Rfam assigns this 296-nucleotide sequence from Tropilaelaps mercedesae to the family "Metazoan signal recognition particle RNA". Rfam classes the family as a non-coding RNA gene. Gene Ontology terms of the family: SRP-dependent cotranslational protein targeting to membrane, signal sequence recognition and signal recognition particle, endoplasmic reticulum targeting. The signal recognition particle (SRP) is a universally conserved ribonucleoprotein. The base pairs follow the family's consensus structure, which is taken from published work.

RNA sequence: GCCGGGGGUCGUGGCGUAUCCCUGUAAUCCCGCGUCUGGGAGGCUGGUGCAUGGGAUGUCCACGGGCUGGGGCAACCCGCCGUUGAUUGUCCAUGUCGAUCGGGUGUCCGCACUAAGCUCGGCGUCCACAUGGCCGCUUCCAGGGAACUGGAUGCGUCCAGGUCGGCUGACGAGGGGCGAACCGGCUCAGGGCGGAAACGCAGCAGGCAAAAGUCCCCGCGCUGUGCAGUAGUGGGAUCGCACCCGUGAAUGGGCGUCCUCCGUGGGCCUAGCCUACUGGUUGGACCUCGCACCCU
Number, nucleotide and partner (000 for none) at each position: 001g044002c043003c042004g023005g022006g021007g020008g019009u018010c000011g000012u000013g000014g000015c000016g000017u000018a009019u008020c007021c006022c005023u004024g000025u000026a000027a000028u041029c040030c039031c000032g000033c000034g000035u000036c000037u000038g000039g030040g029041a028042g003043g002044c001045u000046g294047g293048u292049g291050c290051a000052u000053g287054g286055g000056a000057u283058g282059u000060c280061c279062a278063c000064g275065g274066g273067c272068u271069g270070g269071g268072g000073c000074a000075a000076c267077c266078c265079g264080c263081c000082g261083u000084u000085g258086a257087u256088u000089g000090u254091c253092c252093a251094u250095g000096u248097c000098g000099a000100u000101c246102g245103g244104g243105u242106g241107u240108c236109c235110g000111c234112a233113c232114u231115a230116a000117g227118c226119u000120c224121g223122g222123c221124g220125u219126c165127c000128a163129c162130a000131u160132g159133g158134c000135c156136g155137c154138u000139u152140c151141c150142a149143g148144g000145g000146a000147a000148c143149u142150g141151g140152a139153u000154g137155c136156g135157u000158c133159c132160a131161g000162g129163u128164c000165g126166g000167c000168u000169g000170a000171c000172g000173a000174g217175g216176g215177g214178c213179g000180a000181a000182c000183c000184g000185g208186c207187u206188c000189a000190g000191g000192g201193c200194g199195g000196a000197a000198a000199c194200g193201c192202a000203g000204c000205a000206g187207g186208c185209a000210a000211a000212a000213g178214u177215c176216c175217c174218c000219g125220c124221g123222c122223u121224g120225u000226g118227c117228a000229g000230u115231a114232g113233u112234g111235g109236g108237a000238u000239c000240g107241c106242a105243c104244c103245c102246g101247u000248g096249a000250a094251u093252g092253g091254g090255c000256g087257u086258c085259c000260u000261c082262c000263g080264u079265g078266g077267g076268c071269c070270u069271a068272g067273c066274c065275u064276a000277c000278u062279g061280g060281u000282u058283g057284g000285a000286c054287c053288u000289c000290g050291c049292a048293c047294c046295c000296u000